Overview: Lysine riboswitch aptamer: a 182-nucleotide RNA from Secundilactobacillus malefermentans. Lineage of the source: Bacteria > Bacillati > Bacilli > Lactobacillales > Secundilactobacillus. The match comes from Rfam's covariance-model search (108 bits). The base pairs follow the family's consensus structure, which is taken from published work.
[Rfam]
Nucleotides: 182
Base pairs, nucleotide, nucleotide: 008175009174010173011172016084017083018082019081020080022079023078024077025076033069034068035067036066037065039063040062088117089116090115091114092113093112094110095109096108097107098106118144119143121141122140123139124138125137126136128134146167147166148165149164150163151162152161
Number, partner (000 for none) and nucleotide at each position: 001000u002000c003000g004000a005000a006000u007000a008175g009174a010173a011172g012000a013000g014000g015000u016084g017083c018082a019081a020080u021000a022079c023078u024077u025076c026000a027000u028000c029000a030000g031000u032000a033069a034068c035067u036066c037065a038000u039063g040062c041000g042000a043000g044000a045000u046000a047000g048000u049000u050000a051000a052000g053000u054000a055000u056000c057000u058000g059000a060000g061000a062040g063039c064000u065037u066036g067035a068034g069033u070000g071000a072000a073000a074000g075000g076025g077024a078023a079022g080020a081019u082018u083017g084016c085000c086000g087000a088117a089116a090115u091114g092113g093112a094110u095109c096108a097107g098106u099000c100000u101000u102000a103000a104000a105000u106098g107097c108096u109095g110094a111000c112093u113092c114091u115090g116089u117088u118144g119143g120000g121141u122140c123139c124138u125137a126136g127000u128134u129000u130000a131000a132000u133000a134128g135000c136126c137125u138124a139123g140122g141121g142000a143119c144118u145000g146167u147166c148165g149164u150163a151162a152161c153000c154000a155000a156000a157000u158000a159000g160000g161152g162151u163150u164149a165148c166147g167146g168000a169000g170000c171000g172011c173010u174009u175008u176000c177000u178000a179000c180000g181000a182000u